[Rfam]
The family of this 135-nucleotide RNA sequence from Asparagus officinalis is "small nucleolar RNA snoR137". The family's RNA type in Rfam is H/ACA-box small nucleolar RNA. NCBI's taxonomy places the organism under Eukaryota, Streptophyta, Streptophytina, Petrosaviidae, Asparagus. Gene Ontology terms of the family: nucleolus and RNA processing. A search with the family's covariance model found it, with a score of 49 bits.
RNA sequence: GUUGCUCCUUUACAGUAGAGUGACCAACUACAUUUGGUCAUUUUUUAGUAAGAAGCAUAGAGUUGAGAAAGCCAAUUUUAAAUAGCGUGAUGUUUUUUUAUCGUUGCAUUAUGUUACCUGUCUUCUGGUAAAUAA
Numbered sequence: 001g002u003u004g005c006u007c008c009u010u011u012a013c014a015g016u017a018g019a020g021u022g023a024c025c026a027a028c029u030a031c032a033u034u035u036g037g038u039c040a041u042u043u044u045u046u047a048g049u050a051a052g053a054a055g056c057a058u059a060g061a062g063u064u065g066a067g068a069a070a071g072c073c074a075a076u077u078u079u080a081a082a083u084a085g086c087g088u089g090a091u092g093u094u095u096u097u098u099u100a101u102c103g104u105u106g107c108a109u110u111a112u113g114u115u116a117c118c119u120g121u122c123u124u125c126u127g128g129u130a131a132a133u134a135a
Base pairs, nucleotide, nucleotide: 003057004056005055006054008052017045018044019043020042021040022039023038024037025036071129072128073127074126084115085114086113088111089110090109091108092107
Dot-bracket structure: ..((((.(........(((((((((..........))))).))))......).)))).............((((.........(((.(((((..............))))).)))..........))))......